[Rfam]
RNA sequence: UUGCCACUGUGUAGUAUGGCUUUUUAUUCCUAUGUGAUGAUGAAAACUAUUCAUGUAGGAAUCGAAGCCGUUUUACAUGUGGUGA
Dot-bracket structure: .((((((.((((((.((((((((..((((((((((((.............)))))))))))).)))))))).)))))))))))).